The family of this 119-nucleotide RNA from Paragonimus skrjabini miyazakii is "U5 spliceosomal RNA". The family's consensus secondary structure is taken from published work. It is annotated as a spliceosomal small nuclear RNA. The organism belongs to Paragonimus, within Eukaryota. Gene Ontology terms of the family: spliceosomal tri-snRNP complex assembly and U5 snRNP.
RNA sequence: AACCUCUGGUGUCUCCUCAUUUGCGGAUAAAUCUUUCGCCUUUUACUAAAGAUUUCCGUGGGGAGGCACAAUACAAUGAGUCUUGACUCAUUUUUUUCAACCUCGCCUCCGGGCGGGGC
Numbered sequence: 001a002a003c004c005u006c007u008g009g010u011g012u013c014u015c016c017u018c019a020u021u022u023g024c025g026g027a028u029a030a031a032u033c034u035u036u037c038g039c040c041u042u043u044u045a046c047u048a049a050a051g052a053u054u055u056c057c058g059u060g061g062g063g064a065g066g067c068a069c070a071a072u073a074c075a076a077u078g079a080g081u082c083u084u085g086a087c088u089c090a091u092u093u094u095u096u097u098c099a100a101c102c103u104c105g106c107c108u109c110c111g112g113g114c115g116g117g118g119c
Stems, first nucleotide, its partner, number of pairs: 004080003009069011029055008101118006